[Rfam]
RNA sequence: GCCUGAAAUACAUACUUCUUUACAUUCCAUAGCUUAGCAGGUCCAUAUGGGCAUAUAAAGAAGUAUGUGCCCCAAGC
Numbered sequence: 001g002c003c004u005g006a007a008a009u010a011c012a013u014a015c016u017u018c019u020u021u022a023c024a025u026u027c028c029a030u031a032g033c034u035u036a037g038c039a040g041g042u043c044c045a046u047a048u049g050g051g052c053a054u055a056u057a058a059a060g061a062a063g064u065a066u067g068u069g070c071c072c073c074a075a076g077c
Stems, first nucleotide, its partner, number of pairs: 009069014024054001027050005
mir-1 microRNA precursor family: a 77-nucleotide RNA from Peromyscus maniculatus. This family represents the microRNA (miRNA) mir-1 family. miRNAs are transcribed as ~70nt precursors (modelled here) and subsequently processed by the Dicer enzyme to give a ~22nt product. A search with the family's covariance model found it, with a score of 48 bits. Rfam 15.1 lists 4,474 matches to the family in 965 species. The literature on the family includes a 2001 paper in Science by Lee and Ambros, "An extensive class of small RNAs in Caenorhabditis elegans".